[Rfam]
RNA sequence: GGUCAUGAGUACCAGCGCCAAGCCCCGGCUCGCUGGUCGGCAACCCUCCUCCGCGGUGGGGUGCUCCGGGUGACGACCUGGCACGCAUCGAACGGAUGCGGCAAGUGCGGAUU
Number, nucleotide and partner (000 for none) at each position: 001g078002g077003u076004c075005a000006u000007g000008a000009g038010u000011a037012c036013c035014a034015g033016c032017g000018c000019c000020a000021a030022g029023c000024c000025c000026c000027g000028g000029c022030u021031c000032g016033c015034u014035g013036g012037u011038c009039g065040g064041c063042a000043a000044c061045c060046c059047u000048c056049c055050u000051c000052c000053g000054c000055g049056g048057u000058g000059g046060g045061g044062u000063g041064c040065u039066c000067c000068g000069g000070g000071u000072g000073a000074c000075g004076a003077c002078c001079u000080g000081g102082c101083a000084c100085g099086c098087a097088u096089c095090g000091a000092a000093c000094g000095g089096a088097u087098g086099c085100g084101g082102c081103a000104a000105g000106u000107g000108c000109g000110g000111a000112u000113u000
RNA: SAM (S-adenosyl methionine) riboswitch aptamer
Organism: Nocardia speluncae